[Rfam]
RNA sequence: AAUUAGAGCAGUGACUGGCGAAAAUGUGGAAUCAACCACAAGGGAGCUGCGAAUUUUACAAAACAUGAGCCAUUAGCCGUUCGCCUGGGCAGAAGGC
Number, nucleotide and partner (000 for none) at each position: 001a000002a000003u000004u000005a000006g000007a000008g050009c049010a048011g047012u046013g000014a000015c043016u042017g085018g084019c083020g082021a081022a000023a000024a000025u000026g039027u038028g037029g036030a000031a000032u000033c000034a000035a000036c029037c028038a027039c026040a000041a000042g016043g015044g000045a000046g012047c011048u010049g009050c008051g000052a000053a000054u000055u000056u000057u000058a000059c000060a000061a000062a000063a000064c000065a000066u000067g000068a000069g000070c000071c000072a000073u000074u092075a000076g090077c089078c088079g000080u000081u021082c020083g019084c018085c017086u000087g000088g078089g077090c076091a000092g074093a000094a000095g000096g000097c000
RNA: ZMP/ZTP riboswitch aptamer (pfl RNA motif)